[Rfam]
RNA: Manganese Mn2+ riboswitch aptamer (yybP-ykoY)
RNA sequence: ACUAACGGCAAUUCGGGGGAGUAGCCUGCCUGGUAAACAACAGGUGUAUACGUCAACAUCAUUGGUCAUUCGACUGUGGCGUAUACGGCAGUGUAGUGAAUACACUUCUUGGCGAGACUCGGGUGAUAGCACUGGUU
Numbered sequence: 001a002c003u004a005a006c007g008g009c010a011a012u013u014c015g016g017g018g019g020a021g022u023a024g025c026c027u028g029c030c031u032g033g034u035a036a037a038c039a040a041c042a043g044g045u046g047u048a049u050a051c052g053u054c055a056a057c058a059u060c061a062u063u064g065g066u067c068a069u070u071c072g073a074c075u076g077u078g079g080c081g082u083a084u085a086c087g088g089c090a091g092u093g094u095a096g097u098g099a100a101u102a103c104a105c106u107u108c109u110u111g112g113c114g115a116g117a118c119u120c121g122g123g124u125g126a127u128a129g130c131a132c133u134g135g136u137u
Stems, first nucleotide, its partner, number of pairs: 029044003046086010063076005